The record is a 210-nucleotide sequence from Oryza barthii, which matches "MIR812 microRNA precursor family" in Rfam. Rfam 15.1 lists 57,451 matches to the family in 24 species. It scores 120 bits against the family's covariance model. Pairs were carried over by alignment from the consensus structure, which was predicted with RNAalifold.
RNA sequence: AAUAAGUGCAGCCAUAGAUAUUCGUAUUCAGCGUUUUGACCGUCCGUCUUAUUUAAAAAUUUUAUGAAAAAAAUUAAAAAUAUUAGUCACACAUAAAGUACUAUUCAUGUAUUAUCAUCUAAUAACAAUAAAAAUACUAAUCAUAAUUGUUUUUCAAAUAAGACGAACGGUUAAACGUUGAGCAUGAACAAUGUUAAAAUUGUACUUAUU
Numbered sequence: 001a002a003u004a005a006g007u008g009c010a011g012c013c014a015u016a017g018a019u020a021u022u023c024g025u026a027u028u029c030a031g032c033g034u035u036u037u038g039a040c041c042g043u044c045c046g047u048c049u050u051a052u053u054u055a056a057a058a059a060u061u062u063u064a065u066g067a068a069a070a071a072a073a074u075u076a077a078a079a080a081u082a083u084u085a086g087u088c089a090c091a092c093a094u095a096a097a098g099u100a101c102u103a104u105u106c107a108u109g110u111a112u113u114a115u116c117a118u119c120u121a122a123u124a125a126c127a128a129u130a131a132a133a134a135u136a137c138u139a140a141u142c143a144u145a146a147u148u149g150u151u152u153u154u155c156a157a158a159u160a161a162g163a164c165g166a167a168c169g170g171u172u173a174a175a176c177g178u179u180g181a182g183c184a185u186g187a188a189c190a191a192u193g194u195u196a197a198a199a200u201u202g203u204a205c206u207u208a209u210u
Stems, first nucleotide, its partner, number of pairs: 027182006035175009045165008